The family of this 78-nucleotide sequence from Rostratula benghalensis is "Small nucleolar RNA SNORD102". Its family is annotated with nucleolus and RNA processing in the Gene Ontology. Taxonomically the source falls in Rostratula (Eukaryota, Amniota, Sauropsida, Neognathae). Rfam classes the family as a C/D-box small nucleolar RNA. A reference for the family is Vitali et al. (2003), "Identification of 13 novel human modification guide RNAs", Nucleic Acids Res. Pairs were carried over by alignment from the consensus structure, which was predicted with PFOLD.
[Rfam]
RNA sequence: GGCUUGAUGAUGAUUGUCUUCUGUUGAUUGCUUGCUGAAAGCAAAGUGAUCACAGUCAUUUCACCGACACUGAAAGCA
Numbered sequence: 001g002g003c004u005u006g007a008u009g010a011u012g013a014u015u016g017u018c019u020u021c022u023g024u025u026g027a028u029u030g031c032u033u034g035c036u037g038a039a040a041g042c043a044a045a046g047u048g049a050u051c052a053c054a055g056u057c058a059u060u061u062c063a064c065c066g067a068c069a070c071u072g073a074a075a076g077c078a
Stems, first nucleotide, its partner, number of pairs: 002077004